The family of this 63-nucleotide sequence from an Acidimicrobiia bacterium is "Fluoride riboswitch aptamer (crcB RNA motif)".

[Rfam]
RNA sequence: GGUGUGGGCGGCGAUGGAGCCCGCCGUUCAGACCGCCGCAAGGCUGAUGGCUCCUACCUCAUA
Dot-bracket structure: .........[[[[..((((((]]]].........(((....)))....)))))).........
Rfam links the family to the GO terms response to fluoride and positive regulation of gene expression.